[Rfam]
RNA: Small nucleolar RNA snR191
Organism: Aspergillus saccharolyticus
RNA sequence: UGCCAUUGCUAAGUCAAGGCUUCUCCCUGCGACUUCGUGUCGUGUUUUUCUACCUUGGGAGUAUGUCUGUUACAGCUCUGGCAGAUUGACGCGGAUCCGCGCCGACCUUCUUUCUGAAGCUAGGCUGGCUGGUUUUCGUUUUGAAAGCCAGUCGCAAGGAUCAAGCUGUGUUUUGUUUUUGAGUUGAGAUCUGCUUCCGCUCAAUGAGUGGCCCAUAGCAGUUCUCUUAGUAACAUCUCACACAUUU
Numbered sequence: 001u002g003c004c005a006u007u008g009c010u011a012a013g014u015c016a017a018g019g020c021u022u023c024u025c026c027c028u029g030c031g032a033c034u035u036c037g038u039g040u041c042g043u044g045u046u047u048u049u050c051u052a053c054c055u056u057g058g059g060a061g062u063a064u065g066u067c068u069g070u071u072a073c074a075g076c077u078c079u080g081g082c083a084g085a086u087u088g089a090c091g092c093g094g095a096u097c098c099g100c101g102c103c104g105a106c107c108u109u110c111u112u113u114c115u116g117a118a119g120c121u122a123g124g125c126u127g128g129c130u131g132g133u134u135u136u137c138g139u140u141u142u143g144a145a146a147g148c149c150a151g152u153c154g155c156a157a158g159g160a161u162c163a164a165g166c167u168g169u170g171u172u173u174u175g176u177u178u179u180u181g182a183g184u185u186g187a188g189a190u191c192u193g194c195u196u197c198c199g200c201u202c203a204a205u206g207a208g209u210g211g212c213c214c215a216u217a218g219c220a221g222u223u224c225u226c227u228u229a230g231u232a233a234c235a236u237c238u239c240a241c242a243c244a245u246u247u
Stems, first nucleotide, its partner, number of pairs: 003081003017068004021063001023061004029043005092168003096164001101125003105121001107119004127153012170241002175236002178233001186226004191221004197211006